The record is a 151-nucleotide RNA sequence from Eubacterium callanderi, which matches "glmS glucosamine-6-phosphate activated ribozyme aptamer" in Rfam. Taxonomically the source falls in Eubacterium (Bacteria, Bacillota, Clostridia, Eubacteriaceae). By type it is a riboswitch. Pairs were carried over by alignment from the consensus structure, which is taken from published work. A search with the family's covariance model found it, with a score of 93 bits.
[Rfam]
RNA sequence: AAUGGAACAAAAGCGCCAGAACUCAUACGUGAGCCCGUAAUAUUUGAGUUGACGAGGACAGGGAGUAUCGAAAAUUCGGCGGAUGCCCUGGAAGGUGGACUGUUAAAACAGCGGAGUGAUCCGCUGCACAGAGCAGACACCAAAAUCUACU
Numbered sequence: 001a002a003u004g005g006a007a008c009a010a011a012a013g014c015g016c017c018a019g020a021a022c023u024c025a026u027a028c029g030u031g032a033g034c035c036c037g038u039a040a041u042a043u044u045u046g047a048g049u050u051g052a053c054g055a056g057g058a059c060a061g062g063g064a065g066u067a068u069c070g071a072a073a074a075u076u077c078g079g080c081g082g083a084u085g086c087c088c089u090g091g092a093a094g095g096u097g098g099a100c101u102g103u104u105a106a107a108a109c110a111g112c113g114g115a116g117u118g119a120u121c122c123g124c125u126g127c128a129c130a131g132a133g134c135a136g137a138c139a140c141c142a143a144a145a146u147c148u149a150c151u
Stems, first nucleotide, its partner, number of pairs: 020050006027043001029041001059090005068079004095141001098138001100136002109126007